[Rfam]
About this RNA:
Shown here is a 106-nucleotide RNA from Physcomitrium patens, a member of the family "MIR1223 microRNA precursor family". Rfam's curators put it in the seed alignment.
RNA sequence: CUGGAUGUCCAGCAAGGGUGUGUGGCUCUAUAAUCUAGAGCUAAAGCUAGAAAUCCACUGCUGUUGCGAUCGAUUGUAGAGUCAUACACCUCUACUGGCCUUCCAG
Numbered sequence: 001c002u003g004g005a006u007g008u009c010c011a012g013c014a015a016g017g018g019u020g021u022g023u024g025g026c027u028c029u030a031u032a033a034u035c036u037a038g039a040g041c042u043a044a045a046g047c048u049a050g051a052a053a054u055c056c057a058c059u060g061c062u063g064u065u066g067c068g069a070u071c072g073a074u075u076g077u078a079g080a081g082u083c084a085u086a087c088a089c090c091u092c093u094a095c096u097g098g099c100c101u102u103c104c105a106g
Base pairs, nucleotide, nucleotide: 003104004103005102009098010097011096016091017090018089019088020087021086023084024083025082026081028079029078030077031076033074034073035072
Dot-bracket structure: ..(((...(((....((((((.((((.((((.(((....................................))).)))).)))).))))))....)))...)))..